[Rfam]
RNA: Xanthine riboswitch aptamer (NMT1 RNA)
RNA sequence: GGUUGGAGUAGAAGCGUUCAGCGGCUUGCCGCCCGGAAAUUGCUCCCGAC
Numbered sequence: 001g002g003u004u005g006g007a008g009u010a011g012a013a014g015c016g017u018u019c020a021g022c023g024g025c026u027u028g029c030c031g032c033c034c035g036g037a038a039a040u041u042g043c044u045c046c047c048g049a050c
Stems, first nucleotide, its partner, number of pairs: 005046006015035001018037002021032004